SAM riboswitch aptamer (S box leader): a 124-nucleotide sequence from Neotamlana nanhaiensis.
The organism belongs to Neotamlana, within Bacteria.
It scores 78 bits against the family's covariance model.
RNA sequence: AUGUUAUCAAGAAAGGUGGAGGGAAUAGACCCGCUGAAACCUUAGCAACCCUUGUUCAAAUUAAACUAUUUGGUCAUGAAGGUGCUACAUUCUACUAAAACUUUUGUUUUUAGAUAGAUAACUA
Numbered sequence: 001a002u003g004u005u006a007u008c009a010a011g012a013a014a015g016g017u018g019g020a021g022g023g024a025a026u027a028g029a030c031c032c033g034c035u036g037a038a039a040c041c042u043u044a045g046c047a048a049c050c051c052u053u054g055u056u057c058a059a060a061u062u063a064a065a066c067u068a069u070u071u072g073g074u075c076a077u078g079a080a081g082g083u084g085c086u087a088c089a090u091u092c093u094a095c096u097a098a099a100a101c102u103u104u105u106g107u108u109u110u111u112a113g114a115u116a117g118a119u120a121a122c123u124a
Stems, first nucleotide, its partner, number of pairs: 003122006013043005021032003026094004044086004049082002051078001053076002090116001095113006